[Rfam]
RNA sequence: ACCUUUUAAUCGCUUAAUCUCAAUGAGCGGGGGAACCAUUUUUUGAUAAGAUGAAAUACUUAUCUAGGGGUGAAUCUUACUUGCUAGUAAGAUGGGAUACUCUCAGUCCCUAAUCCGACAGCUAACCCCGUAAGCGUCCAUAAACACGAGAG
Number, nucleotide and partner (000 for none) at each position: 001a000002c000003c000004u000005u000006u000007u000008a000009a000010u000011c136012g135013c134014u133015u000016a000017a000018u026019c025020u000021c000022a000023a000024u000025g019026a018027g131028c130029g129030g128031g127032g126033g000034a000035a000036c000037c067038a000039u000040u000041u000042u000043u000044u000045g000046a000047u000048a000049a000050g000051a000052u000053g000054a000055a000056a000057u000058a000059c000060u000061u000062a000063u000064c000065u000066a000067g037068g116069g115070g114071u000072g000073a000074a000075u000076c091077u090078u089079a088080c000081u000082u000083g000084c000085u000086a000087g000088u079089a078090a077091g076092a000093u000094g110095g109096g108097a107098u000099a000100c000101u000102c000103u000104c000105a000106g000107u097108c096109c095110c094111u000112a000113a000114u070115c069116c068117g000118a000119c000120a000121g000122c000123u000124a000125a000126c032127c031128c030129c029130g028131u027132a000133a014134g013135c012136g011137u000138c000139c000140a000141u000142a000143a000144a000145c000146a000147c000148g000149a000150g000151a000152g000

The family of this 152-nucleotide RNA from Virgibacillus salexigens is "c-di-AMP riboswitch aptamer (ydaO/yuaA leader)". Lineage of the source: Bacteria > Bacillati > Caryophanales > Bacillaceae > Virgibacillus. About the family: This family represents a conserved RNA structure found upstream of the ydaO and yuaA genes in Bacillus subtilis and related genes in other bacteria. Gene Ontology terms of the family: cyclic-di-AMP binding and regulation of gene expression.